This 100-nucleotide RNA sequence from Dialister succinatiphilus belongs to the Rfam family "Glycine riboswitch aptamer". A search with the family's covariance model found it, with a score of 59 bits. From the family's description: This family represents the bacterial glycine riboswitch.
RNA sequence: GGACAAAACUCUGGAGAGCCCCGGGCAUUCCCGGGCGCCGAAGGUGCACAGGCCGGAUUUCCGGCUGUAAUCUCUCAGGCAAAAGGACAGAGCCGGGUGG
Numbered sequence: 001g002g003a004c005a006a007a008a009c010u011c012u013g014g015a016g017a018g019c020c021c022c023g024g025g026c027a028u029u030c031c032c033g034g035g036c037g038c039c040g041a042a043g044g045u046g047c048a049c050a051g052g053c054c055g056g057a058u059u060u061c062c063g064g065c066u067g068u069a070a071u072c073u074c075u076c077a078g079g080c081a082a083a084a085g086g087a088c089a090g091a092g093c094c095g096g097g098u099g100g
Stems, first nucleotide, its partner, number of pairs: 009092005020035004037080003040076002044074001046072001049067002